[Rfam]
Nucleotides: 067
Stems, first nucleotide, its partner, number of pairs: 010025004016058006033048006
Number, partner (000 for none) and nucleotide at each position: 001000a002000a003000g004000u005000u006000a007000a008000u009000a010025g011024g012023c013022g014000a015000u016058g017057a018056u019055g020054u021053u022013c023012g024011c025010c026000a027000u028000a029000a030000a031000a032000u033048a034047a035046u036045u037044g038043u039000u040000c041000a042000a043038a044037c045036a046035a047034u048033u049000u050000g051000a052000u053021g054020a055019c056018g057017u058016c059000u060000a061000c062000u063000g064000u065000a066000a067000u
Shown here is a 67-nucleotide RNA from Agrilactobacillus composti, a member of the family "Fluoride riboswitch aptamer (crcB RNA motif)". Taxonomically the source falls in Agrilactobacillus composti (Bacteria, Bacillati, Lactobacillales, Lactobacillaceae). Rfam links the family to the GO terms positive regulation of gene expression and response to fluoride. A search with the family's covariance model found it, with a score of 46 bits.